Rfam assigns this 117-nucleotide RNA sequence from Priestia filamentosa to the family "PyrR binding site". The family's RNA type in Rfam is cis-regulatory element. The source organism's lineage runs through Bacteria, Bacilli, Caryophanales, Bacillaceae and Priestia. It scores 60 bits against the family's covariance model.

[Rfam]
Nucleotides: 117
Stems, first nucleotide, its partner, number of pairs: 005035005014029005041069007049061001051059002077109013
Number, partner (000 for none) and nucleotide at each position: 001000a002000u003000u004000g005035c006034c007033u008032u009031u010000a011000a012000g013000a014029c015028g016027g017026u018025c019000c020000a021000g022000a023000g024000a025018g026017g027016c028015c029014g030000a031009a032008a033007a034006g035005g036000a037000u038000g039000g040000a041069u042068u043067a044066a045065u046064a047063a048000u049061u050000u051059a052058g053000u054000a055000a056000u057000g058052u059051u060000u061049g062000u063047u064046u065045a066044u067043u068042a069041a070000c071000a072000u073000a074000c075000c076000c077109a078108u079107g080106c081105c082104c083103u084102u085101u086100u087099g088098u089097c090000c091000u092000c093000u094000u095000u096000u097089g098088a099087c100086a101085g102084a103083a104082g105081g106080g107079c108078a109077u110000u111000u112000a113000u114000u115000u116000u117000u

Annotation
For this family Rfam cites "Molecular recognition of pyr mRNA by the Bacillus subtilis attenuation regulatory protein PyrR" (Bonner et al., Nucleic Acids Res, 2001).